[Rfam]
RNA sequence: GUGCCUUAAACUUAUGAGUAAGGAAAAUAAAGUGCCUUGGUAACGCUUGGCGCAACCAAGACUCAUAUUGGUAUUAAUUUUGAGUGGGGGUACAGGUCGUCCCUGUGUAGCCUGCCUACUUUCGCGGGCCGCCGGGUUGGUGUGAUCUGCCUC
Numbered sequence: 001g002u003g004c005c006u007u008a009a010a011c012u013u014a015u016g017a018g019u020a021a022g023g024a025a026a027a028u029a030a031a032g033u034g035c036c037u038u039g040g041u042a043a044c045g046c047u048u049g050g051c052g053c054a055a056c057c058a059a060g061a062c063u064c065a066u067a068u069u070g071g072u073a074u075u076a077a078u079u080u081u082g083a084g085u086g087g088g089g090g091u092a093c094a095g096g097u098c099g100u101c102c103c104u105g106u107g108u109a110g111c112c113u114g115c116c117u118a119c120u121u122u123c124g125c126g127g128g129c130c131g132c133c134g135g136g137u138u139g140g141u142g143u144g145a146u147c148u149g150c151c152u153c
Stems, first nucleotide, its partner, number of pairs: 004023005032053005039046001055072005087153005094148007104136001106134002111128005